[Rfam]
Rfam assigns this 284-nucleotide part of an RNA from Zea mays to the family "Archaeal large subunit ribosomal RNA". It scores 1222 bits against the family's covariance model.
RNA sequence: GAGUCUGACAUGCGUGCGAGUCGACGGGUUCAGAAACCUGAGAUGCGCAAGGAAGCUGACGAGCGGGAGGCCCUCACGGGCCGCACCGCUGGCCGACCCUGAUCUUCUGUGAAGGGUUCGAGUUGGAGCACGCCUAUCGGGACCCGAAAGAUGGUGAACUAUGCCUGAGCGGGGCGAAGCCAGAGGAAACUCUGGUGGAGGCUCGAAGCGAUACUGACGUGCAAAUCGUUCGUCUGACUUGGGUAUAGGGGCGAAAGACUAAUCGAACCAUCUAGUAGCUGGUU
Numbered sequence: 001g002a003g004u005c006u007g008a009c010a011u012g013c014g015u016g017c018g019a020g021u022c023g024a025c026g027g028g029u030u031c032a033g034a035a036a037c038c039u040g041a042g043a044u045g046c047g048c049a050a051g052g053a054a055g056c057u058g059a060c061g062a063g064c065g066g067g068a069g070g071c072c073c074u075c076a077c078g079g080g081c082c083g084c085a086c087c088g089c090u091g092g093c094c095g096a097c098c099c100u101g102a103u104c105u106u107c108u109g110u111g112a113a114g115g116g117u118u119c120g121a122g123u124u125g126g127a128g129c130a131c132g133c134c135u136a137u138c139g140g141g142a143c144c145c146g147a148a149a150g151a152u153g154g155u156g157a158a159c160u161a162u163g164c165c166u167g168a169g170c171g172g173g174g175c176g177a178a179g180c181c182a183g184a185g186g187a188a189a190c191u192c193u194g195g196u197g198g199a200g201g202c203u204c205g206a207a208g209c210g211a212u213a214c215u216g217a218c219g220u221g222c223a224a225a226u227c228g229u230u231c232g233u234c235u236g237a238c239u240u241g242g243g244u245a246u247a248g249g250g251g252c253g254a255a256a257g258a259c260u261a262a263u264c265g266a267a268c269c270a271u272c273u274a275g276u277a278g279c280u281g282g283u284u
Stems, first nucleotide, its partner, number of pairs: 005140004010135001012133006020046002026039004050057002063089004070081004143282002146279001150272006159248011170236001172204004179196007208233004213229002216227002250260002